About this RNA
Rfam assigns this 110-nucleotide RNA sequence from Clostridium sp. MD294 to the family "TPP riboswitch aptamer (THI element)". A search with the family's covariance model found it, with a score of 71 bits. A reference for the family is Rodionov et al. (2002), "Comparative genomics of thiamin biosynthesis in procaryotes. New genes and regulatory mechanisms", J Biol Chem.

RNA sequence: AAAUGUUGCUAGGGGUGCCAAUGUGGUAUUGGCUGAGAAUAAAACGAAUGUUUUGUACCCUUAAACCUGAACUAGAUAAUGCUAGCGGAGGGAAGCGGUUUAGUGCAAAA
Dot-bracket structure: .....(((((((((.((((((.......))))).......(((.......))).)..))))....(((...((((......))))...)))..)))))............